[Rfam]
RNA: FMN riboswitch aptamer (RFN element)
Organism: Clostridium cadaveris
RNA sequence: AGUUAUCUUCAGGGCAGGGCGUAAAUCCCUACCGGCGGUAUAGCCCGCGAGCCGUAAGGCAUGAUUCGGUGAAAUUCCGAGGCCGACAGUAUAGUCUGGAUGAAAGAAGGUAUUA
Numbered sequence: 001a002g003u004u005a006u007c008u009u010c011a012g013g014g015c016a017g018g019g020c021g022u023a024a025a026u027c028c029c030u031a032c033c034g035g036c037g038g039u040a041u042a043g044c045c046c047g048c049g050a051g052c053c054g055u056a057a058g059g060c061a062u063g064a065u066u067c068g069g070u071g072a073a074a075u076u077c078c079g080a081g082g083c084c085g086a087c088a089g090u091a092u093a094g095u096c097u098g099g100a101u102g103a104a105a106g107a108a109g110g111u112a113u114u115a
Base pairs, nucleotide, nucleotide: 004112005111006110007109008108009107010106017029018028019027031095032094033085034084035048036047037046038045043083044082053059065081066080067079068078069077087098088097089096